This 77-nucleotide RNA from Eptesicus fuscus belongs to the Rfam family "mir-30 microRNA precursor family".
About the family: This family consists of the mammalian microRNA (miRNA) precursor mir-30a. Animal miRNAs are transcribed as ~70nt precursors and subsequently processed by the Dicer enzyme to give a ~22nt product. In this case the mature sequence comes from both the 3' (miR-30) and 5' (mir-97-6) arms of the precursor.
Pairs were carried over by alignment from the consensus structure, which was predicted with PFOLD.
RNA sequence: UGAGCAACUGUAAACAUCCUCGACUGGAAGCUGUGAGGCCACAGAUGGGCUUUCAGUCGGAUGUUUGCAGCUGCCUA
Numbered sequence: 001u002g003a004g005c006a007a008c009u010g011u012a013a014a015c016a017u018c019c020u021c022g023a024c025u026g027g028a029a030g031c032u033g034u035g036a037g038g039c040c041a042c043a044g045a046u047g048g049g050c051u052u053u054c055a056g057u058c059g060g061a062u063g064u065u066u067g068c069a070g071c072u073g074c075c076u077a
Stems, first nucleotide, its partner, number of pairs: 002076001004074003008070012023057010

Taxonomically the source falls in Eptesicus (Eukaryota, Metazoa, Deuterostomia, Yangochiroptera).